The record is a 147-nucleotide RNA from Triticum turgidum, which matches "Small nucleolar RNA snoR136" in Rfam. The base pairs follow the family's consensus structure, which was predicted with mfold. The family's RNA type in Rfam is H/ACA-box small nucleolar RNA. Gene Ontology terms of the family: RNA processing and nucleolus. For this family Rfam cites "Mining small RNA sequencing data: a new approach to identify small nucleolar RNAs in Arabidopsis" (Chen and Wu, Nucleic Acids Res, 2009). It scores 62 bits against the family's covariance model. NCBI's taxonomy places the organism under Eukaryota, Magnoliopsida, Mesangiospermae, Petrosaviidae, Triticum turgidum.

[Rfam]
RNA sequence: UCUGCUGCUUCUCUUAAGUAUUCGUGUCUGUGAACUAAUUUGUAUGGUUCCCGGGCAGUGAUUAGAUGGGAAGCAGAAAGCAAUUGUUCCUCUCGCUAUCCAAUGCGGAAAUUCUGUGAUGCGAUUGGACGUCGAGGAACUACACUG
Numbered sequence: 001u002c003u004g005c006u007g008c009u010u011c012u013c014u015u016a017a018g019u020a021u022u023c024g025u026g027u028c029u030g031u032g033a034a035c036u037a038a039u040u041u042g043u044a045u046g047g048u049u050c051c052c053g054g055g056c057a058g059u060g061a062u063u064a065g066a067u068g069g070g071a072a073g074c075a076g077a078a079a080g081c082a083a084u085u086g087u088u089c090c091u092c093u094c095g096c097u098a099u100c101c102a103a104u105g106c107g108g109a110a111a112u113u114c115u116g117u118g119a120u121g122c123g124a125u126u127g128g129a130c131g132u133c134g135a136g137g138a139a140c141u142a143c144a145c146u147g
Stems, first nucleotide, its partner, number of pairs: 001078001003075003008070003012066002016063002019060002025057006034048003086140007094131002099129005109117001